[Rfam]
RNA sequence: UCCCUCUUUAAGGUGGCGGUGAAAUGUGCUUUUUCCCAACAUUUUAAUAUUCAUAUCACAGCCAGCUUUGAGGAGCGAUA
Dot-bracket structure: ....(((((((((((((.((((..(((.........................))))))).)))).)))))))))......
Source information:
A member of the RNA family "mir-2 microRNA precursor family" from Lucilia cuprina, 80 nucleotides long. A search with the family's covariance model found it, with a score of 52 bits.